[Rfam]
RNA sequence: AGCAUUUGCUCAUUUGUUUUGCUUUCUGUGUAAGUAACAACGUAUGAGUAAAUGCUAAAACUAAAACCUUCUUUUGCAACCCAUAACUCAUUCCGUGUGAGUUAUGUUACUUAUGAGAAGGGACAGU
Numbered sequence: 001a002g003c004a005u006u007u008g009c010u011c012a013u014u015u016g017u018u019u020u021g022c023u024u025u026c027u028g029u030g031u032a033a034g035u036a037a038c039a040a041c042g043u044a045u046g047a048g049u050a051a052a053u054g055c056u057a058a059a060a061c062u063a064a065a066a067c068c069u070u071c072u073u074u075u076g077c078a079a080c081c082c083a084u085a086a087c088u089c090a091u092u093c094c095g096u097g098u099g100a101g102u103u104a105u106g107u108u109a110c111u112u113a114u115g116a117g118a119a120g121g122g123a124c125a126g127u
Base pairs, nucleotide, nucleotide: 001056002055003054004053005052006051007050008049009048011046016041017040018039019037020036021035022034027032067122068121069120072118073117074116075115076114082106083105084104085103086102087101088100089099090098091097
Small nucleolar RNA SNORA40: a 127-nucleotide sequence from Microcaecilia unicolor. The family has 28 seed sequences and 2,550 matches in Rfam 15.1. The organism belongs to Microcaecilia, within Eukaryota. About the family: The snoRNA ACA 40 belongs to the H/ACA family of snoRNAs and guides the pseudouridylation of 28S rRNA subunit at position U4565. NB This family has a high threshold value to exclude a large number of closely related sequences that do not appear to have conserved H and ACA boxes, and may be pseudogenes. The family's consensus secondary structure was predicted with RNAalifold. It is annotated as an H/ACA-box small nucleolar RNA. For this family Rfam cites "Mapping to nucleotide resolution of pseudouridine residues in large subunit ribosomal RNAs from representative eukaryotes, prokaryotes, archaebacteria, mitochondria and chloroplasts" (Ofengand and Bakin, J Mol Biol, 1997).